[Rfam]
This 133-nucleotide sequence from Helopsaltes ochotensis belongs to the Rfam family "Small nucleolar RNA SNORA5".
The family's RNA type in Rfam is H/ACA-box small nucleolar RNA.
From the family's description: ACA5 is a member of the H/ACA class of snoRNA that guide the sites of modification of uridines to pseudouridines.
The family is grouped with related families in Rfam's "SNORA5 clan".
A search with the family's covariance model found it, with a score of 58 bits.
The source organism's lineage runs through Eukaryota, Dipnotetrapodomorpha, Theropoda, Telluraves and Helopsaltes.
Pairs were carried over by alignment from the consensus structure, which was predicted with RNAfold.
RNA sequence: UGCAGCCCAGUCAAAUUCGGUCCCUGUCCCCCCAUGACGGGGACCGGCCACCGGCUGCCACAGUGACCUCCGUGCCCACGAGCCCCGUGUCCCCUCCCGUGGGGCCCGGGGCGUGAAUGCACUGGAGACACGG
Numbered sequence: 001u002g003c004a005g006c007c008c009a010g011u012c013a014a015a016u017u018c019g020g021u022c023c024c025u026g027u028c029c030c031c032c033c034a035u036g037a038c039g040g041g042g043a044c045c046g047g048c049c050a051c052c053g054g055c056u057g058c059c060a061c062a063g064u065g066a067c068c069u070c071c072g073u074g075c076c077c078a079c080g081a082g083c084c085c086c087g088u089g090u091c092c093c094c095u096c097c098c099g100u101g102g103g104g105c106c107c108g109g110g111g112c113g114u115g116a117a118u119g120c121a122c123u124g125g126a127g128a129c130a131c132g133g
Stems, first nucleotide, its partner, number of pairs: 002058004018046011071125001074122001083111005